[Rfam]
RNA sequence: AAAGUGAGUAGAAGCGGUCAGUGCGGGAACUCCGCGCGGGACAUUGCUCAGCAA
Numbered sequence: 001a002a003a004g005u006g007a008g009u010a011g012a013a014g015c016g017g018u019c020a021g022u023g024c025g026g027g028a029a030c031u032c033c034g035c036g037c038g039g040g041a042c043a044u045u046g047c048u049c050a051g052c053a054a
Stems, first nucleotide, its partner, number of pairs: 005050006015039001018041002021037006
RNA: Xanthine riboswitch aptamer (NMT1 RNA)